Description:
A member of the RNA family "Small nucleolar RNA Z157/R69/R10" from Solanum lycopersicum, 101 nucleotides long. Lineage of the source: Eukaryota > Streptophyta > Mesangiospermae > eudicotyledons > Solanum subgen. Lycopersicon. On this family, see Chen et al., Nucleic Acids Res 2003: "The high diversity of snoRNAs in plants: identification and comparative study of 120 snoRNA genes from Oryza sativa". Its family is annotated with nucleolus and RNA processing in the Gene Ontology.
[Rfam]
RNA sequence: AACUGUGUGAUGAGGAAGCAAUUUUGUGGACUAGAGUUUCUGAUCUGGGGAUUUAGACCCCCAUUGGUUGAAGACAAACCCUUGGCUGUCUGAGCACACCU
Numbered sequence: 001a002a003c004u005g006u007g008u009g010a011u012g013a014g015g016a017a018g019c020a021a022u023u024u025u026g027u028g029g030a031c032u033a034g035a036g037u038u039u040c041u042g043a044u045c046u047g048g049g050g051a052u053u054u055a056g057a058c059c060c061c062c063a064u065u066g067g068u069u070g071a072a073g074a075c076a077a078a079c080c081c082u083u084g085g086c087u088g089u090c091u092g093a094g095c096a097c098a099c100c101u
Stems, first nucleotide, its partner, number of pairs: 001101001004098005037073004044066001046063004
Annotation
It is annotated as a C/D-box small nucleolar RNA.